[Rfam]
RNA sequence: AUACCUUCUCGGCCUUUUGGCUAUGAUCAAGUGUAGUAUCUGUUCUUAUAAGUGUGACAACUUAUAUGUUAGCUACUGCUAACUUGAACUGUCACAACAAUUUUUCACUGGGGAGUCGGUGGCUUUGGUCUCUGACCAUGCUCCGACUCGACUGUCGCCUCAGCCCUGCACGACUUGCUGAGUGCGGCGGACCCGAG
Numbered sequence: 001a002u003a004c005c006u007u008c009u010c011g012g013c014c015u016u017u018u019g020g021c022u023a024u025g026a027u028c029a030a031g032u033g034u035a036g037u038a039u040c041u042g043u044u045c046u047u048a049u050a051a052g053u054g055u056g057a058c059a060a061c062u063u064a065u066a067u068g069u070u071a072g073c074u075a076c077u078g079c080u081a082a083c084u085u086g087a088a089c090u091g092u093c094a095c096a097a098c099a100a101u102u103u104u105u106c107a108c109u110g111g112g113g114a115g116u117c118g119g120u121g122g123c124u125u126u127g128g129u130c131u132c133u134g135a136c137c138a139u140g141c142u143c144c145g146a147c148u149c150g151a152c153u154g155u156c157g158c159c160u161c162a163g164c165c166c167u168g169c170a171c172g173a174c175u176u177g178c179u180g181a182g183u184g185c186g187g188c189g190g191a192c193c194c195g196a197g
Base pairs, nucleotide, nucleotide: 007026008025011022012021013020014019047066048065049064050063051062052061068083069082070081071080072079073078113149114148115147116146117145118144119143126138127137128136129135130134152190153189154188155187156186157185159182160181161180162179163178164177
Background:
U2 spliceosomal RNA: a 197-nucleotide RNA sequence from Perkinsus marinus. Gene Ontology terms of the family: U2 snRNP, pre-mRNA branch point binding and mRNA branch site recognition. The family's RNA type in Rfam is spliceosomal small nuclear RNA. The sequence is in the family's curated seed alignment. From the family's description: U2 is a small nuclear RNA (snRNA) component of the spliceosome (involved in pre-mRNA splicing). On this family, see Zwieb, Nucleic Acids Res 1997: "The uRNA database".